Source information
The family of this 108-nucleotide RNA from Trinickia dinghuensis is "Glycine riboswitch aptamer". The organism belongs to Trinickia, within Bacteria. The family has 44 seed sequences and 9,425 matches in Rfam 15.1. Rfam links the family to the GO term glycine biosynthetic process.
RNA sequence: GCGCACGCGUCGGGAGAGAGCGUCGGCGGUAAGGUUUUCAGCCUACCGGCCGCGCCGCCGAAGGGGCACACCCAGAAACUCUCAGGCAAAAGGACCGACCGCGUCGAA
Numbered sequence: 001g002c003g004c005a006c007g008c009g010u011c012g013g014g015a016g017a018g019a020g021c022g023u024c025g026g027c028g029g030u031a032a033g034g035u036u037u038u039c040a041g042c043c044u045a046c047c048g049g050c051c052g053c054g055c056c057g058c059c060g061a062a063g064g065g066g067c068a069c070a071c072c073c074a075g076a077a078a079c080u081c082u083c084a085g086g087c088a089a090a091a092g093g094a095c096c097g098a099c100c101g102c103g104u105c106g107a108a
Stems, first nucleotide, its partner, number of pairs: 006103003009099005020055004057087003060083002064081003